RNA sequence: CCCGCGAUAUCGGGAGAGCCUGUUCCUGCCGCCCGGCAGGUGCAGCGCCGAAGGAGCAACCGCCCCGGAAACUCUCAGGCAAAAGGACCGGUAUCCGCCA
Numbered sequence: 001c002c003c004g005c006g007a008u009a010u011c012g013g014g015a016g017a018g019c020c021u022g023u024u025c026c027u028g029c030c031g032c033c034c035g036g037c038a039g040g041u042g043c044a045g046c047g048c049c050g051a052a053g054g055a056g057c058a059a060c061c062g063c064c065c066c067g068g069a070a071a072c073u074c075u076c077a078g079g080c081a082a083a084a085g086g087a088c089c090g091g092u093a094u095c096c097g098c099c100a
Stems, first nucleotide, its partner, number of pairs: 006095008020045004047080003050076002054074003060068002